[Rfam]
RNA sequence: GAAAAGGGCUUCUGUCCUGAGUGGCACAAGAAGAGCAGCCUAAUUGCUCUACAUGUGGAAUCAGGAUCAAGAGAUUUCAGAAGCAUAGUUUUUUGGUACUUGGGCAGCUGGUGAUCGUUGGUCCUGGUGCCCGC
Numbered sequence: 001g002a003a004a005a006g007g008g009c010u011u012c013u014g015u016c017c018u019g020a021g022u023g024g025c026a027c028a029a030g031a032a033g034a035g036c037a038g039c040c041u042a043a044u045u046g047c048u049c050u051a052c053a054u055g056u057g058g059a060a061u062c063a064g065g066a067u068c069a070a071g072a073g074a075u076u077u078c079a080g081a082a083g084c085a086u087a088g089u090u091u092u093u094u095g096g097u098a099c100u101u102g103g104g105c106a107g108c109u110g111g112u113g114a115u116c117g118u119u120g121g122u123c124c125u126g127g128u129g130c131c132c133g134c
Base pairs, nucleotide, nucleotide: 008084009083010082011081012080013026014025015024016023027055028054030052032050033049034048035047036046037045038044056079057078058077059076060075061074062073102132103131104130105129107128108127109126110125111124113123114122115121116120
RNA: U11 spliceosomal RNA